[Rfam]
The record is a 124-nucleotide RNA sequence from Trifolium medium, which matches "MIR168 microRNA precursor family" in Rfam. Gene Ontology terms of the family: miRNA-mediated post-transcriptional gene silencing and RISC complex. The source organism's lineage runs through Eukaryota, Streptophyta, Magnoliopsida, Fabales and Trifolium. On this family, see Jagadeeswaran et al., New Phytol 2009: "Cloning and characterization of small RNAs from Medicago truncatula reveals four novel legume-specific microRNA families". Pairs were carried over by alignment from the consensus structure, which was predicted with WAR. The family has 10 seed sequences and 518 matches in Rfam 15.1.
RNA sequence: CACUUCGCGGUCUCUAAUUCGCUUGGUGCAGGUCGGGAACCACUACAUCCGCAGUUAUCGUGACGAUUACCGGCGAAUAAUUGGUUCCCGCCUUGCAUCAACUGAAUCGGAGGCCGCGGUGAAG
Numbered sequence: 001c002a003c004u005u006c007g008c009g010g011u012c013u014c015u016a017a018u019u020c021g022c023u024u025g026g027u028g029c030a031g032g033u034c035g036g037g038a039a040c041c042a043c044u045a046c047a048u049c050c051g052c053a054g055u056u057a058u059c060g061u062g063a064c065g066a067u068u069a070c071c072g073g074c075g076a077a078u079a080a081u082u083g084g085u086u087c088c089c090g091c092c093u094u095g096c097a098u099c100a101a102c103u104g105a106a107u108c109g110g111a112g113g114c115c116g117c118g119g120u121g122a123a124g
Stems, first nucleotide, its partner, number of pairs: 013111002017107004023101010034090005040084002